[Rfam]
RNA sequence: UCGCUCACAAAGUGGUUGUCGUAUGCGUUUUUACUUUGGCCAUAUCACAGCCAGCUUUGAUGAGCGAUG
Numbered sequence: 001u002c003g004c005u006c007a008c009a010a011a012g013u014g015g016u017u018g019u020c021g022u023a024u025g026c027g028u029u030u031u032u033a034c035u036u037u038g039g040c041c042a043u044a045u046c047a048c049a050g051c052c053a054g055c056u057u058u059g060a061u062g063a064g065c066g067a068u069g
Base pairs, nucleotide, nucleotide: 005063006062007061008059009058010057011056012055013053014052015051016050017049018048019047021045022044023043024042

The family of this 69-nucleotide RNA from Bombyx mori is "mir-2 microRNA precursor family". Rfam 15.1 lists 918 matches to the family in 280 species. The source organism's lineage runs through Eukaryota, Allotriocarida, Neoptera, Ditrysia and Bombyx. A reference for the family is Lee and Ambros (2001), "An extensive class of small RNAs in Caenorhabditis elegans", Science. Gene Ontology terms of the family: RISC complex and miRNA-mediated post-transcriptional gene silencing.